The family of this 242-nucleotide sequence from Hymenochirus boettgeri is "Small nucleolar RNA SNORA53". It scores 170 bits against the family's covariance model. Rfam classes the family as an H/ACA-box small nucleolar RNA. The snoRNA ACA53 belongs to the H/ACA family of pseudouridylation guide snoRNAs. Lineage of the source: Eukaryota > Deuterostomia > Tetrapoda > Pipoidea > Hymenochirus.
RNA sequence: CACAUGCUUCCUUAGAUCCACCUUUUGUGGAUGUCUUAACUUGUUCUGAGUUUUAGCAGAUAUGUGUUAUUUCCAGUCAAGUGACAUCCAGCAACUUUUUGGUUGUAAAGUCAAAGGUGCUUGAGUCAUUGGCAUGUAAGAAUAAUAUACCUGCAUUUUAGCCUUGACCUUCUGAUGGCAGUGGCUGCAGCAUUGCUGUAUUCCAUGUUUUUCCAUCAGGAUCUGGCUGCUGUGCGGACAAC
Number, nucleotide and partner (000 for none) at each position: 001c000002a137003c136004a135005u134006g133007c132008u131009u000010c000011c125012u124013u123014a122015g121016a000017u000018c000019c119020a118021c117022c116023u115024u000025u114026u113027g112028u090029g089030g088031a087032u086033g085034u000035c000036u000037u000038a000039a082040c081041u080042u079043g000044u000045u000046c076047u075048g074049a000050g073051u000052u000053u000054u069055a068056g067057c066058a065059g000060a000061u000062a000063u000064g000065u058066g057067u056068u055069a054070u000071u000072u000073c050074c048075a047076g046077u000078c000079a042080a041081g040082u039083g000084a000085c033086a032087u031088c030089c029090a028091g106092c105093a104094a103095c102096u101097u000098u000099u000100u000101g096102g095103u094104u093105g092106u091107a000108a000109a000110g000111u000112c027113a026114a025115a023116g022117g021118u020119g019120c000121u015122u014123g013124a012125g011126u000127c000128a000129u000130u000131g008132g007133c006134a005135u004136g003137u002138a000139a000140g000141a000142a000143u000144a000145a000146u000147a000148u000149a000150c000151c237152u236153g235154c234155a233156u000157u000158u000159u000160a228161g227162c226163c225164u000165u000166g000167a000168c000169c000170u000171u220172c219173u218174g217175a216176u215177g214178g213179c000180a000181g000182u000183g211184g210185c000186u000187g199188c198189a197190g000191c000192a000193u000194u000195g000196c000197u189198g188199u187200a000201u000202u000203c000204c000205a000206u000207g000208u000209u000210u184211u183212u000213c178214c177215a176216u175217c174218a173219g172220g171221a000222u000223c000224u000225g163226g162227c161228u160229g000230c000231u000232g000233u155234g154235c153236g152237g151238a000239c000240a000241a000242c000